[Rfam]
RNA sequence: GCCGAGUGGGAUAACGCCUGCUUGUAACCCAAGUGGGGGCACUAAUGUGGUUGGACAAUUGGUCUGGCCCAUUGAGUCGGGCUUGUUGAUGCUUACCUCUUCGGUCUGCCCGUUCCAAGCUAGGAGUUGGUUCAAGUGAUUAGUGCGAAGGCAUGGAUCUCUCGAGUCUUAUAGCGGAAGGCACAGCGUGAGGCUGGUUUCACAGAGCAGCGACUACUUCCCUCUCUUAACGGUGGAAGGAUAACAGGCUGUUGCAUCUUAAGUCCAACAUGGCUCCUUGUCCCGCUCCCAAUUGGACGACCACAUUU
Numbered sequence: 001g002c003c004g005a006g007u008g009g010g011a012u013a014a015c016g017c018c019u020g021c022u023u024g025u026a027a028c029c030c031a032a033g034u035g036g037g038g039g040c041a042c043u044a045a046u047g048u049g050g051u052u053g054g055a056c057a058a059u060u061g062g063u064c065u066g067g068c069c070c071a072u073u074g075a076g077u078c079g080g081g082c083u084u085g086u087u088g089a090u091g092c093u094u095a096c097c098u099c100u101u102c103g104g105u106c107u108g109c110c111c112g113u114u115c116c117a118a119g120c121u122a123g124g125a126g127u128u129g130g131u132u133c134a135a136g137u138g139a140u141u142a143g144u145g146c147g148a149a150g151g152c153a154u155g156g157a158u159c160u161c162u163c164g165a166g167u168c169u170u171a172u173a174g175c176g177g178a179a180g181g182c183a184c185a186g187c188g189u190g191a192g193g194c195u196g197g198u199u200u201c202a203c204a205g206a207g208c209a210g211c212g213a214c215u216a217c218u219u220c221c222c223u224c225u226c227u228u229a230a231c232g233g234u235g236g237a238a239g240g241a242u243a244a245c246a247g248g249c250u251g252u253u254g255c256a257u258c259u260u261a262a263g264u265c266c267a268a269c270a271u272g273g274c275u276c277c278u279u280g281u282c283c284c285g286c287u288c289c290c291a292a293u294u295g296g297a298c299g300a301c302c303a304c305a306u307u308u
Base pairs, nucleotide, nucleotide: 001040002039003038004023005022006021007020008019009018010017028037029036030035044307045306046305047304048303049302050301051300052299053298056295057294059292060291061290062287064285066283067282070280071279074276075275076274077273078272079266080265081264082263083262084261085260088258089257090256091255093254102251103250104249105248106247107246108245110240111239113238114237115236116235117234119231121229122228123227124226125225126224129168130167131166132165133164135162136161138159139158140157141156143154144153145152146151169174176221177220178219179218180217187212188211189210194205195204196203
The family of this 308-nucleotide sequence from Hibiscus syriacus is "Plant signal recognition particle RNA".
Pairs were carried over by alignment from the consensus structure, which is taken from published work.
Taxonomically the source falls in Hibiscus (Eukaryota, Euphyllophyta, Pentapetalae, Malvaceae).
A search with the family's covariance model found it, with a score of 239 bits.
It is annotated as a non-coding RNA gene.
Gene Ontology terms of the family: signal recognition particle, endoplasmic reticulum targeting and SRP-dependent cotranslational protein targeting to membrane, signal sequence recognition.